[Rfam]
The record is a 144-nucleotide sequence from Canis lupus, which matches "U4 spliceosomal RNA" in Rfam. Lineage of the source: Eukaryota > Teleostomi > Eutheria > Canis > Canis lupus.
RNA sequence: AGCUUUGCACAGUGGCAAUAUCAUAGCCAAUGAGGUUUAUCCAAGGCACGAUUAUUGCUAAUUCAAAUAACAACAACAACAAAAAAACAAUUUAAUGCCUACGACAUUAUUAGAAGAUGCUAAUAUUUAUAACAUAUAGCAAUG
Numbered sequence: 001a002g003c004u005u006u007g008c009a010c011a012g013u014g015g016c017a018a019u020a021u022c023a024u025a026g027c028c029a030a031u032g033a034g035g036u037u038u039a040u041c042c043a044a045g046g047c048a049c050g051a052u053u054a055u056u057g058c059u060a061a062u063u064c065a066a067a068u069a070a071c072a073a074c075a076a077c078a079a080c081a082a083a084a085a086a087a088c089a090a091u092u093u094a095a096u097g098c099c100u101a102c103g104a105c106a107u108u109a110u111u112a113g114a115a116g117a118u119g120c121u122a123a124u125a126u127u128u129a130u131a132a133c134a135u136a137u138a139g140c141a142a143u144g
Stems, first nucleotide, its partner, number of pairs: 020052003024048001026047003034042002086121001088119001091115001092113005135144003

Rfam's curators write: U4 small nuclear RNA (U4 snRNA) is a component of the major U2-dependent spliceosome.